M-box riboswitch aptamer (ykoK leader): a 174-nucleotide sequence from Clostridium putrefaciens. A reference for the family is Dann CE 3rd et al. (2007), "Structure and mechanism of a metal-sensing regulatory RNA", Cell. Its family is annotated with response to magnesium ion and regulation of gene expression in the Gene Ontology. NCBI's taxonomy places the organism under Bacteria, Bacillati, Eubacteriales, Clostridiaceae, Clostridium. M-box riboswitch, also know as ykoK leader is described as a metaloregulatory RNA that sense divalent metals and function as a genetic control element of genes related to divalent metal transport in bacteria. It was first reported upstream of the B.subtilis ykoK gene and genes with related functions in other bacteria.
[Rfam]
RNA sequence: AUAUAAAAGCGUUAGGUGAGGUUACUAUAUAAAUAUAAGCUACUACCCAGAAAUGUCGAGAGACGCCAACGGGUCAGCAGGUACUGUCGAUUAAGGCUUUACCUAAUGUAGCUGGUAUGUUUUAAAACAAAGCCAAAGUUAUAUAGUGCUAAAGCUCAACGAAUGGAGUAAUCU
Dot-bracket structure: .....(...((([.(((..(((..((((((((......(((((.((((.....((((....)))).....)))).....((((..(((.....])))..))))....))))).(((...............)))....)))))))).)))...)))..))....)...).....